The family of this 118-nucleotide RNA from Rhodococcus sp. CX is "SAM (S-adenosyl methionine) riboswitch aptamer".
RNA sequence: GGUCAUGAGUGCCAGCAUCGAGCCCCGGCUUGCUGGUCGGCAACCCUCCGGUCAGGGUGGGGUGCUCCGGGUGAGGACCGGGCCGUUCGGCGCACAGGUCGGGCGGCAAGCCUGUACA
Numbered sequence: 001g002g003u004c005a006u007g008a009g010u011g012c013c014a015g016c017a018u019c020g021a022g023c024c025c026c027g028g029c030u031u032g033c034u035g036g037u038c039g040g041c042a043a044c045c046c047u048c049c050g051g052u053c054a055g056g057g058u059g060g061g062g063u064g065c066u067c068c069g070g071g072u073g074a075g076g077a078c079c080g081g082g083c084c085g086u087u088c089g090g091c092g093c094a095c096a097g098g099u100c101g102g103g104c105g106g107c108a109a110g111c112c113u114g115u116a117c118a
Stems, first nucleotide, its partner, number of pairs: 001079004009038001011037006021030002039066003044062003048057002082107010

Rfam's curators write: SAM-IV is a mRNA element that regulates gene expression via direct sensing of S-adenosylmethionine (SAM or AdoMet).